[Rfam]
RNA sequence: AACAAAUAGACGCUUAAUCGCAAGCAUAGUUUAGAGAAAUUCUUUAAAUCGUGCGGCGAGCCGGGGAACCAAACGUGUUCCUGGGGUGAGUUUCCCACAAGGGUUCUCUCGCAGAGAGAGAAGGAGUGGGGAUAGGGGCCUUCCGCUCCGAACCCGACAGCUAACUCGGUCAGCAAACAGGAAGAAUUU
Numbered sequence: 001a002a003c004a005a006a007u008a009g010a011c012g013c014u015u016a017a018u019c020g021c022a023a024g025c026a027u028a029g030u031u032u033a034g035a036g037a038a039a040u041u042c043u044u045u046a047a048a049u050c051g052u053g054c055g056g057c058g059a060g061c062c063g064g065g066g067a068a069c070c071a072a073a074c075g076u077g078u079u080c081c082u083g084g085g086g087u088g089a090g091u092u093u094c095c096c097a098c099a100a101g102g103g104u105u106c107u108c109u110c111g112c113a114g115a116g117a118g119a120g121a122a123g124g125a126g127u128g129g130g131g132a133u134a135g136g137g138g139c140c141u142u143c144c145g146c147u148c149c150g151a152a153c154c155c156g157a158c159a160g161c162u163a164a165c166u167c168g169g170u171c172a173g174c175a176a177a178c179a180g181g182a183a184g185a186a187u188u189u
Base pairs, nucleotide, nucleotide: 012174013173014172018059019058020057060170061169062168063167064166065165070083071082084155085154086153092132093131094130095129096128097127098126135149136148137147138146